The family of this 167-nucleotide RNA from Coemansia javaensis is "Protozoan signal recognition particle RNA".
The family's RNA type in Rfam is non-coding RNA gene.
The organism belongs to Coemansia, within Eukaryota.
The family is grouped with related families in Rfam's "SRP clan".
The literature on the family includes a 2009 paper in RNA Biol by Rosenblad et al., "Kinship in the SRP RNA family".
[Rfam]
Nucleotides: 167
Stems, first nucleotide, its partner, number of pairs: 001167015016149002021146004025140001027138008035076004040071010050059003078082001084129005095120003102113003
Number, partner (000 for none) and nucleotide at each position: 001167g002166u003165g004164g005163c006162g007161c008160a009159g010158g011157a012156g013155u014154g015153u016149c017148c018000g019000a020000u021146u022145u023144g024143u025140a026000u027138c028137c029136c030135g031134c032133a033132g034131u035076c036075g037074u038073c039000a040071u041070u042069g043068g044067c045066g046065g047064c048063c049062u050059g051058g052057c053000g054000a055000a056000g057052g058051c059050c060000u061000g062049g063048g064047g065046c066045c067044g068043u069042c070041g071040a072000g073038g074037a075036c076035g077000u078082u079000g080000a081000a082078g083000a084129g085128c086127c087126c088125c089000g090000g091000a092000a093000c094000g095120c096119g097118u098000c099000a100000g101000c102113c103112u104111g105000g106000c107000u108000u109000c110000a111104c112103a113102g114000g115000g116000c117000a118097g119096c120095g121000a122000a123000a124000a125088g126087g127086g128085g129084c130000c131034g132033c133032u134031g135030u136029g137028g138027g139000c140025u141000c142000g143024a144023c145022g146021a147000c148017g149016g150000a151000c152000u153015g154014c155013a156012u157011u158010c159009c160008u161007g162006c163005g164004c165003c166002g167001c